[Rfam]
RNA: MIR5291 microRNA precursor family
Organism: Trifolium medium
RNA sequence: GAUGAAUUUGAUUCAAUCCAUUAACUAAUUUUUUUACUAAAUGGAUGGAUUGGAUGAAUCAAUUA
Number, nucleotide and partner (000 for none) at each position: 001g000002a000003u000004g000005a000006a059007u058008u057009u000010g000011a055012u054013u053014c052015a051016a050017u049018c048019c047020a046021u045022u044023a000024a000025c000026u039027a038028a000029u036030u000031u000032u000033u000034u000035u000036a029037c000038u027039a026040a000041a000042u000043g000044g022045a021046u020047g019048g018049a017050u016051u015052g014053g013054a012055u011056g000057a008058a007059u006060c000061a000062a000063u000064u000065a000